The family of this 157-nucleotide RNA from Trifolium subterraneum is "Small nucleolar RNA snoR2/U65". For this family Rfam cites "Localization and processing from a polycistronic precursor of novel snoRNAs in maize" (Shaw et al., J Cell Sci, 1998). Gene Ontology terms of the family: RNA processing and nucleolus. It is annotated as an H/ACA-box small nucleolar RNA. The organism belongs to Trifolium, within Eukaryota. The family's consensus secondary structure was predicted with WAR.
[Rfam]
RNA sequence: GGUCUGAUGCCACGUCUCUGAUAGCUAUAUGCUCUGAUCAAAGAUGCUAUGAUUGGACCAAAAUUAAUAGUGAUUUUUCAUUUGUUUCGCAUUCUGAUAGGAAUCUGCUUAUCUUAUUUACUAUGAUUAUGCAGAGCCGAUUUGUGCGAUUACACUU
Dot-bracket structure: .((((((((...(((((..(((.((.....))....)))..)))))...).)))))))............................(((((........((...(((.(.(((...........))).)..)))..))......)))))........